The family of this 110-nucleotide RNA from Paenibacillus sp. FSL R5-0912 is "Purine riboswitch aptamer". The family's consensus secondary structure is taken from published work. Riboswitches are metabolite binding domains within certain messenger RNAs that serve as precision sensors for their corresponding targets. Allosteric rearrangement of mRNA structure is mediated by ligand binding, and this results in modulation of gene expression. A class of riboswitches that selectively recognises guanine and becomes saturated at concentrations as low as 5 nM. In Bacillus subtilis, this mRNA motif is located on at least five separate transcriptional units that together encode 17 genes that are mostly involved in purine transport and purine nucleotide biosynthesis. Taxonomically the source falls in Paenibacillus (Bacteria, Bacillota, Caryophanales, Paenibacillaceae). It scores 37 bits against the family's covariance model.
RNA sequence: CCGAUAAUUACAUAUUGUUCUCGUAUAACCUCGCAGCCAUCAGGUACAUCAGGGCGAGGGUUUCUACAGGAAGCCUACUCUUCCUAACUACGAUGAUAAGGACUUUGAUA
Numbered sequence: 001c002c003g004a005u006a007a008u009u010a011c012a013u014a015u016u017g018u019u020c021u022c023g024u025a026u027a028a029c030c031u032c033g034c035a036g037c038c039a040u041c042a043g044g045u046a047c048a049u050c051a052g053g054g055c056g057a058g059g060g061u062u063u064c065u066a067c068a069g070g071a072a073g074c075c076u077a078c079u080c081u082u083c084c085u086a087a088c089u090a091c092g093a094u095g096a097u098a099a100g101g102a103c104u105u106u107g108a109u110a
Stems, first nucleotide, its partner, number of pairs: 018096002021093005029059006068085006